[Rfam]
RNA sequence: AACGGUAGACAAUCACUUGGGGUCUUCUGUGGCCCCUGGUGCGAUAACUGUGCCGACAGCAGAGGAAGCAUUAAACUCAUUGCCCACGGGAAAGUGUGGGGAGUGAUACCCAUGUUCCUAUAAUC
Numbered sequence: 001a002a003c004g005g006u007a008g009a010c011a012a013u014c015a016c017u018u019g020g021g022g023u024c025u026u027c028u029g030u031g032g033c034c035c036c037u038g039g040u041g042c043g044a045u046a047a048c049u050g051u052g053c054c055g056a057c058a059g060c061a062g063a064g065g066a067a068g069c070a071u072u073a074a075a076c077u078c079a080u081u082g083c084c085c086a087c088g089g090g091a092a093a094g095u096g097u098g099g100g101g102a103g104u105g106a107u108a109c110c111c112a113u114g115u116u117c118c119u120a121u122a123a124u125c
Stems, first nucleotide, its partner, number of pairs: 005051004014041003021034004065118001067116005077106005085098003
This 125-nucleotide RNA sequence from Bucco capensis belongs to the Rfam family "Small nucleolar RNA ACA64". The family's consensus secondary structure was predicted with WAR. The match comes from Rfam's covariance-model search (59 bits). Rfam links the family to the GO terms nucleolus and RNA processing.